[Rfam]
RNA sequence: CUGCAGCCAGUUAAGCUGACUGCUUUCCACCAGGUGGCGCUAGAUGUGCAGUUGCUGCAAACCGCAACCUCCUGGGUAUUGUCUGCAGCCUGUCACUUGCACAAGCCGCCAUGAGGGACCUUAGAGACAGCC
Numbered sequence: 001c002u003g004c005a006g007c008c009a010g011u012u013a014a015g016c017u018g019a020c021u022g023c024u025u026u027c028c029a030c031c032a033g034g035u036g037g038c039g040c041u042a043g044a045u046g047u048g049c050a051g052u053u054g055c056u057g058c059a060a061a062c063c064g065c066a067a068c069c070u071c072c073u074g075g076g077u078a079u080u081g082u083c084u085g086c087a088g089c090c091u092g093u094c095a096c097u098u099g100c101a102c103a104a105g106c107c108g109c110c111a112u113g114a115g116g117g118a119c120c121u122u123a124g125a126g127a128c129a130g131c132c
Stems, first nucleotide, its partner, number of pairs: 002050004019045001020037004075120003086108001088106002091103001

Small nucleolar RNA SNORA70: a 132-nucleotide sequence from Erinaceus europaeus. Rfam's curators write: snoRNA U70 seems to be exclusive to mammals and is a member of the H/ACA class of snoRNA which contain H (ANANNA) and ACA box motifs. H/ACA box snoRNAs are involved in the conversion of uridines to pseudouridines (5-ribosyluracil) a constituent of structural RNAs (transfer, ribosomal, small nuclear, and small nucleolar). Pairs were carried over by alignment from the consensus structure, which was predicted with PFOLD. NCBI's taxonomy places the organism under Eukaryota, Bilateria, Vertebrata, Eulipotyphla, Erinaceus. The family's RNA type in Rfam is H/ACA-box small nucleolar RNA.